[Rfam]
RNA sequence: GGCCCCAUCGUCUAGCGGUUAGGACAGCGCCCUCUCAAGGCGCAGACACGGGUUCAAGUCCCGUUGGGGUCA
Numbered sequence: 001g002g003c004c005c006c007a008u009c010g011u012c013u014a015g016c017g018g019u020u021a022g023g024a025c026a027g028c029g030c031c032c033u034c035u036c037a038a039g040g041c042g043c044a045g046a047c048a049c050g051g052g053u054u055c056a057a058g059u060c061c062c063g064u065u066g067g068g069g070u071c072a
Stems, first nucleotide, its partner, number of pairs: 001071007010025004027043005048064005
The family of this 72-nucleotide sequence from Deinococcus aquiradiocola is "tRNA". The match comes from Rfam's covariance-model search (65 bits). The organism belongs to Deinococcus, within Bacteria.